Shown here is a 204-nucleotide RNA sequence from Nocardia terpenica, a member of the family "Actinobacteria sRNA Ms_IGR-5".
Lineage of the source: Bacteria > Actinomycetota > Actinomycetes > Mycobacteriales > Nocardia.
RNA sequence: ACACGGGAAGGAGGUGGUUCAAAGAAUGAGUAUUCGAAGGACACGUGAGGUGGCUGUCAGCUAGCGCCACCGCUGUAACGGAUUCCUGUUCGCGAGCGCGACGCUAAUCCAAAGCAGCCACCCGGCCCCCGAGCCCCCGGUUAGUCCGACCGGGACCCGCGUGAGAACUUGGUCUCCGUAGGUAUGGCUCGGGGGUCGUUCCUA
Dot-bracket structure: ............((((((..................................))))))((((.((((...(((..................))).)))).).))).................(((((((((((((((((((.......))))))...............................)))))))))))))......